[Rfam]
RNA: Group II catalytic intron D1-D4-1
RNA sequence: CUGAAAGUUUAGCAAUGAACUUUGAUCGCAUUGCAGAAGUCAGCAAACGGCAUAGUAGGUUAACUCUUUAACUGAAGGCC
Numbered sequence: 001c002u003g004a005a006a007g008u009u010u011a012g013c014a015a016u017g018a019a020c021u022u023u024g025a026u027c028g029c030a031u032u033g034c035a036g037a038a039g040u041c042a043g044c045a046a047a048c049g050g051c052a053u054a055g056u057a058g059g060u061u062a063a064c065u066c067u068u069u070a071a072c073u074g075a076a077g078g079c080c
Stems, first nucleotide, its partner, number of pairs: 004023008039048002049080003058073006
Dot-bracket structure: ...((((((((....))))))))...............((......))(((......((((((....))))))....)))